Histone 3' UTR stem-loop: a 45-nucleotide RNA sequence from Xiphophorus maculatus.

[Rfam]
RNA sequence: ACAACGGCUCUUUUAAGAGCCACACACACCCAGUUUAAGAGAUUU
Numbered sequence: 001a002c003a004a005c006g007g008c009u010c011u012u013u014u015a016a017g018a019g020c021c022a023c024a025c026a027c028a029c030c031c032a033g034u035u036u037a038a039g040a041g042a043u044u045u
Stems, first nucleotide, its partner, number of pairs: 006021006
The family has 50 seed sequences and 44,596 matches in Rfam 15.1. The family's RNA type in Rfam is cis-regulatory element. The mRNAs of metazoan histone genes lack a poly-A tail. 3' end processing occurs at a site between a highly conserved stem-loop (modelled by this family) and a purine rich region around 20 nts downstream (the histone downstream element, or HDE). The stem-loop is bound by a 31 kDa stem-loop binding protein (SLBP - also termed the histone hairpin binding protein, or HBP). For this family Rfam cites "The sequence of the stem and flanking sequences at the 3' end of histone mRNA are critical determinants for the binding of the stem-loop binding protein" (Williams and Marzluff, Nucleic Acids Res, 1995). The match comes from Rfam's covariance-model search (38 bits).